The record is a 49-nucleotide RNA sequence, which matches "DUF2693-FD RNA" in Rfam.
From the family's description: DUF2693-FD RNA is a non-coding RNA (ncRNA) recognised in Bacteroides by a bioinformatic analisis by Zasha Weinberg.
Rfam's curators put it in the seed alignment.
By type it is a small RNA.
The family's consensus secondary structure is taken from published work.
RNA sequence: GCCCCAUUGACGGAAUGAACGCAGCCCGUGAGCGAUACACGGAUGGGGC
Number, nucleotide and partner (000 for none) at each position: 001g049002c048003c047004c046005c045006a044007u043008u000009g000010a000011c021012g020013g000014a000015a000016u000017g033018a000019a000020c012021g011022c000023a036024g000025c000026c042027c041028g040029u039030g038031a000032g000033c017034g000035a000036u023037a000038c030039a029040c028041g027042g026043a007044u006045g005046g004047g003048g002049c001